RNA sequence: UCUAGAAGAUGAUAUCCGAAUCAUGCAUAGUUCACACUGAAACACAUCGUGUGGAGAAACAUUCAUCUAAUGUCUUUCGCUCCUAUCUGACUCCUCCC
Numbered sequence: 001u002c003u004a005g006a007a008g009a010u011g012a013u014a015u016c017c018g019a020a021u022c023a024u025g026c027a028u029a030g031u032u033c034a035c036a037c038u039g040a041a042a043c044a045c046a047u048c049g050u051g052u053g054g055a056g057a058a059a060c061a062u063u064c065a066u067c068u069a070a071u072g073u074c075u076u077u078c079g080c081u082c083c084u085a086u087c088u089g090a091c092u093c094c095u096c097c098c
Stems, first nucleotide, its partner, number of pairs: 004095002007092002
RNA: Small nucleolar RNA snR60/Z15/Z230/Z193/J17